[Rfam]
RNA: transfer-messenger RNA
RNA sequence: GGGGCCGACCUGGCUUCGACGUGGGUUGCAAAGCAGAUCAGGGCAUACCGAGGACCAGUUACCUCGUAAAUCCACUGGAAAACUACAAACGCCAACGACGAGCGUUUCGCUCUCGCCGCUUAAGGCUUGAGCCGCUGCACUGAUUCGUUCCUGGGUCAGAUGGGGUCAAACCCAUUGCAGCGUCAUUUACAGGGACUAGCAAUGGAUCGGGUUACUUGGUCCGGCGCGAAACUCAAGGUGACUCGCCCGUGGUCGGCCUGCCGACUGGCUAAACCCCGGGUUAAAUCCAAGUAGGUCGGCUAAGUAUGUAGAACUGACUGUAGAGGACUUGCGGACGGGGGUUCGAUUCCCCCCGGCUCCACCA
Numbered sequence: 001g002g003g004g005c006c007g008a009c010c011u012g013g014c015u016u017c018g019a020c021g022u023g024g025g026u027u028g029c030a031a032a033g034c035a036g037a038u039c040a041g042g043g044c045a046u047a048c049c050g051a052g053g054a055c056c057a058g059u060u061a062c063c064u065c066g067u068a069a070a071u072c073c074a075c076u077g078g079a080a081a082a083c084u085a086c087a088a089a090c091g092c093c094a095a096c097g098a099c100g101a102g103c104g105u106u107u108c109g110c111u112c113u114c115g116c117c118g119c120u121u122a123a124g125g126c127u128u129g130a131g132c133c134g135c136u137g138c139a140c141u142g143a144u145u146c147g148u149u150c151c152u153g154g155g156u157c158a159g160a161u162g163g164g165g166u167c168a169a170a171c172c173c174a175u176u177g178c179a180g181c182g183u184c185a186u187u188u189a190c191a192g193g194g195a196c197u198a199g200c201a202a203u204g205g206a207u208c209g210g211g212u213u214a215c216u217u218g219g220u221c222c223g224g225c226g227c228g229a230a231a232c233u234c235a236a237g238g239u240g241a242c243u244c245g246c247c248c249g250u251g252g253u254c255g256g257c258c259u260g261c262c263g264a265c266u267g268g269c270u271a272a273a274c275c276c277c278g279g280g281u282u283a284a285a286u287c288c289a290a291g292u293a294g295g296u297c298g299g300c301u302a303a304g305u306a307u308g309u310a311g312a313a314c315u316g317a318c319u320g321u322a323g324a325g326g327a328c329u330u331g332c333g334g335a336c337g338g339g340g341g342u343u344c345g346a347u348u349c350c351c352c353c354c355g356g357c358u359c360c361a362c363c364a
Base pairs, nucleotide, nucleotide: 001360002359003358004357005356006355007354020333021332022331023330024329025328026327027326033321034320035319036318038317039316040315041314044308045307046306047305048304049066050065051064052063053062055078056077057076058075059074112131113130114129115126116125117124133182134181135180136179137178138177140159141158147196148195149194150193151192152191153190199227200226203223204222205221206220207219210243211242212241213240214239215238245281246280247279248278249277251275252274253273256269257268258267260300261299262298263297337353338352339351340350341349